[Rfam]
RNA sequence: CUUGAUUUACCUUCUAGUGGUGCUUUAUAUAUAUAUAUAUAUAUAAAGCACCACUAGAAGGUAAAUCAAG
Numbered sequence: 001c002u003u004g005a006u007u008u009a010c011c012u013u014c015u016a017g018u019g020g021u022g023c024u025u026u027a028u029a030u031a032u033a034u035a036u037a038u039a040u041a042u043a044u045a046a047a048g049c050a051c052c053a054c055u056a057g058a059a060g061g062u063a064a065a066u067c068a069a070g
Stems, first nucleotide, its partner, number of pairs: 001070004007064009017054006026047001028045002
This 70-nucleotide RNA sequence from Argiope bruennichi belongs to the Rfam family "mir-29 microRNA precursor family". It scores 47 bits against the family's covariance model.